[Rfam]
Small nucleolar RNA SNORA14: a 140-nucleotide RNA from Varanus komodoensis. NCBI's taxonomy places the organism under Eukaryota, Chordata, Bifurcata, Varanoidea, Varanus. Rfam classes the family as an H/ACA-box small nucleolar RNA. A search with the family's covariance model found it, with a score of 94 bits.

RNA sequence: AUGCAUUCUCAAACCCUCCUGGUACUGUUAAUAUUGUAACUUCCAGGAUAAGGAUGAAUGCAAAAGAAAAAUGUAGAGUUAUCCAAAAUGCUGAACAUGCUAACAUUGUUCUGCAUUAUUUCACCUCUUCAACAAGGACU
Number, nucleotide and partner (000 for none) at each position: 001a000002u000003g061004c060005a059006u058007u000008c000009u053010c052011a000012a000013a000014c000015c000016c000017u048018c047019c046020u045021g044022g043023u000024a041025c000026u039027g000028u000029u000030a000031a000032u000033a000034u000035u000036g000037u000038a000039a026040c000041u024042u000043c022044c021045a020046g019047g018048a017049u000050a000051a000052g010053g009054a000055u000056g000057a000058a006059u005060g004061c003062a000063a000064a000065a140066g139067a000068a000069a000070a000071a000072u131073g130074u000075a128076g127077a126078g000079u000080u000081a000082u000083c000084c000085a000086a000087a117088a116089u115090g114091c113092u000093g111094a000095a109096c108097a000098u000099g000100c000101u000102a000103a000104c000105a000106u000107u000108g096109u095110u000111c093112u000113g091114c090115a089116u088117u087118a000119u000120u000121u000122c000123a000124c000125c000126u077127c076128u075129u000130c073131a072132a000133c000134a000135a000136g000137g000138a000139c066140u065